RNA sequence: GCCUCCGUAGCUCAAUGGAUAGAGCAUCGGCCUUCUAAUCCGACGGUUGCUGGUUCGAGUCCAGCCGGGGGCA
Number, nucleotide and partner (000 for none) at each position: 001g072002c071003c070004u069005c068006c067007g066008u000009a000010g025011c024012u023013c022014a000015a000016u000017g000018g000019a000020u000021a000022g013023a012024g011025c010026a000027u043028c042029g041030g040031c000032c000033u000034u000035c000036u000037a000038a000039u000040c030041c029042g028043a027044c000045g000046g000047u000048u000049g065050c064051u063052g062053g061054u000055u000056c000057g000058a000059g000060u000061c053062c052063a051064g050065c049066c007067g006068g005069g004070g003071g002072c001073a000
Rfam assigns this 73-nucleotide RNA sequence from Microbacterium pygmaeum to the family "tRNA".
A search with the family's covariance model found it, with a score of 68 bits.
NCBI's taxonomy places the organism under Bacteria, Bacillati, Actinomycetota, Actinomycetes, Microbacterium.